[Rfam]
RNA: Mammalian CPEB3 ribozyme
Organism: Parnassius apollo
RNA sequence: AAUUCCAAUUUGGGGGUCAUUGUAGAAGCGUGCUCGUCGCGACCCCUGCCAGCCUUUUUCAGGGCUGCUUUUCUACA
Numbered sequence: 001a002a003u004u005c006c007a008a009u010u011u012g013g014g015g016g017u018c019a020u021u022g023u024a025g026a027a028g029c030g031u032g033c034u035c036g037u038c039g040c041g042a043c044c045c046c047u048g049c050c051a052g053c054c055u056u057u058u059u060c061a062g063g064g065c066u067g068c069u070u071u072u073c074u075a076c077a
Base pairs, nucleotide, nucleotide: 013046014045015044016043017042018041021077022076023075024074025073026072027071028040029039030038050067051066052065053064054063055062056061